[Rfam]
RNA sequence: UCCUCGUUCAAAAAAUCGCUAUUCGGAGCUCACACACAGAGACGCUUGCUCCGGCAGCGUCUCGCUCCCUUCCAUGCUCUGGGAGAAAGUCCCCGGACGUCUCUUUACCGAGAAUGCGGAAACGCGCCGCCAUAAAAGCACAGCGGCUGACCUCCGCGCCCAGGCCCUCUCCUUGCGCCGGCCCUGUCCACCGUUAUAUCCUCGCAACCAACCCAGCCUCGAAGUUCUGCUCGGUUCCCUGGCUCUCAUGGACGAAGAUAUGAGUCCGAGCCAGGGUCUCGACGGUCCCUUGGAACUGGUGCGCGCGUGAGGGGAGGUGGGCAGCCGCUUGGUGCCUGCGAGUGUGGUGUCGGGCGCAGAGGAUUUGUUGUCGAGGUUGAUAGGUAUGCGAUUGCCCGGCGAAAGCUGGGUUACUCAAUGGGGCUCAUUCUUGACGCGAGG
Numbered sequence: 001u002c003c004u005c006g007u008u009c010a011a012a013a014a015a016u017c018g019c020u021a022u023u024c025g026g027a028g029c030u031c032a033c034a035c036a037c038a039g040a041g042a043c044g045c046u047u048g049c050u051c052c053g054g055c056a057g058c059g060u061c062u063c064g065c066u067c068c069c070u071u072c073c074a075u076g077c078u079c080u081g082g083g084a085g086a087a088a089g090u091c092c093c094c095g096g097a098c099g100u101c102u103c104u105u106u107a108c109c110g111a112g113a114a115u116g117c118g119g120a121a122a123c124g125c126g127c128c129g130c131c132a133u134a135a136a137a138g139c140a141c142a143g144c145g146g147c148u149g150a151c152c153u154c155c156g157c158g159c160c161c162a163g164g165c166c167c168u169c170u171c172c173u174u175g176c177g178c179c180g181g182c183c184c185u186g187u188c189c190a191c192c193g194u195u196a197u198a199u200c201c202u203c204g205c206a207a208c209c210a211a212c213c214c215a216g217c218c219u220c221g222a223a224g225u226u227c228u229g230c231u232c233g234g235u236u237c238c239c240u241g242g243c244u245c246u247c248a249u250g251g252a253c254g255a256a257g258a259u260a261u262g263a264g265u266c267c268g269a270g271c272c273a274g275g276g277u278c279u280c281g282a283c284g285g286u287c288c289c290u291u292g293g294a295a296c297u298g299g300u301g302c303g304c305g306c307g308u309g310a311g312g313g314g315a316g317g318u319g320g321g322c323a324g325c326c327g328c329u330u331g332g333u334g335c336c337u338g339c340g341a342g343u344g345u346g347g348u349g350u351c352g353g354g355c356g357c358a359g360a361g362g363a364u365u366u367g368u369u370g371u372c373g374a375g376g377u378u379g380a381u382a383g384g385u386a387u388g389c390g391a392u393u394g395c396c397c398g399g400c401g402a403a404a405g406c407u408g409g410g411u412u413a414c415u416c417a418a419u420g421g422g423g424c425u426c427a428u429u430c431u432u433g434a435c436g437c438g439a440g441g
Stems, first nucleotide, its partner, number of pairs: 002441006008434004014393006023083001024081006039063007088425002091423004115126004224365001226363001230361003234357002239354002242351001250345001252343002328338001331335001395410006
Dot-bracket structure: .((((((((((..((((((...(((((((.........(((((((...........)))))))............)))))).)....[[.[[[[....................((((....)))).................................................................................................(.(...(((.((...((.(.......(.((..........................................................................(..(...)..)...)).).....).)).)).))).).)......................)))))).((((((....)))))).........]]]]]].....)))).))))))
The record is a 441-nucleotide RNA from Ilyonectria sp. MPI-CAGE-AT-0026, which matches "RNase MRP" in Rfam. The match comes from Rfam's covariance-model search (112 bits). Taxonomically the source falls in Ilyonectria (Eukaryota, Opisthokonta, Fungi, Nectriaceae). The base pairs follow the family's consensus structure, which is taken from published work.